The family of this 151-nucleotide RNA from Macrococcus sp. DPC7161 is "glmS glucosamine-6-phosphate activated ribozyme aptamer". From the family's description: This entry contains a glucosamine-6-phosphate activated ribozyme that is found in the mRNA for GlmS. GlmS is an enzyme that uses fructose-6-phosphate and glutamine to generate glucosamine-6-phosphate. The ribozyme catalyses self cleavage of the glmS mRNA that is thought to regulate GlmS activity. The family's consensus secondary structure is taken from published work.

[Rfam]
RNA sequence: UUUAAUAAAAUAGCGCCAGAACAGGAAACUGUUGACGAGGAAGAUGGUUAUCGAAACUUCGGCGGAUGCCAUCACGGAUGUAGCUGAUUCGUUAGUUAAUGAACAAAACUUAGGAGCGAUCCUUUGAACAAAAGCAUUAACGAAAGCACAA
Numbered sequence: 001u002u003u004a005a006u007a008a009a010a011u012a013g014c015g016c017c018a019g020a021a022c023a024g025g026a027a028a029c030u031g032u033u034g035a036c037g038a039g040g041a042a043g044a045u046g047g048u049u050a051u052c053g054a055a056a057c058u059u060c061g062g063c064g065g066a067u068g069c070c071a072u073c074a075c076g077g078a079u080g081u082a083g084c085u086g087a088u089u090c091g092u093u094a095g096u097u098a099a100u101g102a103a104c105a106a107a108a109c110u111u112a113g114g115a116g117c118g119a120u121c122c123u124u125u126g127a128a129c130a131a132a133a134g135c136a137u138u139a140a141c142g143a144a145a146g147c148a149c150a151a
Stems, first nucleotide, its partner, number of pairs: 020033005043073004051062004075091005095141007109126001112123004

Taxonomically the source falls in Macrococcus (Bacteria, Bacillota, Bacilli, Staphylococcaceae). It scores 102 bits against the family's covariance model.